[Rfam]
RNA sequence: GGUCUAUGAUGAUCAUCUGUAAAAGGUCUGAUUACCCACAAUCCUCUGCGCCCCCUCAGCUCCCAGCAGCCCCUGCCCUACCCAGCAUGCUCUAGUUGUGCAGCGCUGGUUUCAGGAGCUGCUGACACACAGGAUGUUGCAUCACAAUCUGAGUCAGUUAGAGAUACCAUUGGCUCAGUGUGAUGAUUGACAUCCCACAGAACCAAUAAGCCUGGAGUAAGGGGGCAUGGCCAGAGGAUGGGGACAUGAUCACAAGUUUUCAAGCUGAGACC
Numbered sequence: 001g002g003u004c005u006a007u008g009a010u011g012a013u014c015a016u017c018u019g020u021a022a023a024a025g026g027u028c029u030g031a032u033u034a035c036c037c038a039c040a041a042u043c044c045u046c047u048g049c050g051c052c053c054c055c056u057c058a059g060c061u062c063c064c065a066g067c068a069g070c071c072c073c074u075g076c077c078c079u080a081c082c083c084a085g086c087a088u089g090c091u092c093u094a095g096u097u098g099u100g101c102a103g104c105g106c107u108g109g110u111u112u113c114a115g116g117a118g119c120u121g122c123u124g125a126c127a128c129a130c131a132g133g134a135u136g137u138u139g140c141a142u143c144a145c146a147a148u149c150u151g152a153g154u155c156a157g158u159u160a161g162a163g164a165u166a167c168c169a170u171u172g173g174c175u176c177a178g179u180g181u182g183a184u185g186a187u188u189g190a191c192a193u194c195c196c197a198c199a200g201a202a203c204c205a206a207u208a209a210g211c212c213u214g215g216a217g218u219a220a221g222g223g224g225g226c227a228u229g230g231c232c233a234g235a236g237g238a239u240g241g242g243g244a245c246a247u248g249a250u251c252a253c254a255a256g257u258u259u260u261c262a263a264g265c266u267g268a269g270a271c272c
Base pairs, nucleotide, nucleotide: 001272002271003270004269041250042249043248047227048226049225060217061216062215063214064124065123066122067121068120069119070118082109083108084107085106086105088103090100132195133194134193135192136191137190138189146181149178150177151176152175153174154173155172156171157170158169

A member of the RNA family "Small Cajal body specific RNA 6" from Muraenolepis orangiensis, 272 nucleotides long. By type it is a small Cajal body RNA. Its family is annotated with RNA processing and nucleolus in the Gene Ontology. The literature on the family includes a 2001 paper in EMBO J by Huttenhofer et al., "RNomics: an experimental approach that identifies 201 candidates for novel, small, non-messenger RNAs in mouse". Rfam describes the family as follows. U88 is small Cajal body specific RNA (scaRNA). scaRNAs are a novel class of small nuclear RNAs which localise to the Cajal bodies. U88 is found associated with both fibrillarin and Gar1p and co-localises with coilin in Cajal bodies.